Rfam assigns this 246-nucleotide part of an RNA from Corynebacterium riegelii to the family "Bacterial large subunit ribosomal RNA". It scores 2672 bits against the family's covariance model.
[Rfam]
RNA sequence: UGAAACUUGAAGAAGGCUGUCCCUAGUACGAGAGGACCGGGACGGACGUACCUCUAGUGUGCCAGUUGUUCCGCCAGGAGCAUCGCUGGUUGGCUACGUACGGAAGGGAUAACCGCUGAAAGCAUCUAAGCGGGAAGCCUGUUUUAAGAUGAGGUUUCAUUAUAGGUGCCCUAUAGACUAUGGGGUUGAUAGGCCAGAACUGGAAACACAGCAAUGUGAUGAGGUGACUGGUACUAAUCCACCAAC
Numbered sequence: 001u002g003a004a005a006c007u008u009g010a011a012g013a014a015g016g017c018u019g020u021c022c023c024u025a026g027u028a029c030g031a032g033a034g035g036a037c038c039g040g041g042a043c044g045g046a047c048g049u050a051c052c053u054c055u056a057g058u059g060u061g062c063c064a065g066u067u068g069u070u071c072c073g074c075c076a077g078g079a080g081c082a083u084c085g086c087u088g089g090u091u092g093g094c095u096a097c098g099u100a101c102g103g104a105a106g107g108g109a110u111a112a113c114c115g116c117u118g119a120a121a122g123c124a125u126c127u128a129a130g131c132g133g134g135a136a137g138c139c140u141g142u143u144u145u146a147a148g149a150u151g152a153g154g155u156u157u158c159a160u161u162a163u164a165g166g167u168g169c170c171c172u173a174u175a176g177a178c179u180a181u182g183g184g185g186u187u188g189a190u191a192g193g194c195c196a197g198a199a200c201u202g203g204a205a206a207c208a209c210a211g212c213a214a215u216g217u218g219a220u221g222a223g224g225u226g227a228c229u230g231g232u233a234c235u236a237a238u239c240c241a242c243c244a245a246c
Stems, first nucleotide, its partner, number of pairs: 001159008011145004017045007047102005055096003062089005067082006106140003113133005165243004169185005190236003193232005199225002203220001207218004
Taxonomically the source falls in Corynebacterium (Bacteria, Actinomycetota, Mycobacteriales, Corynebacteriaceae).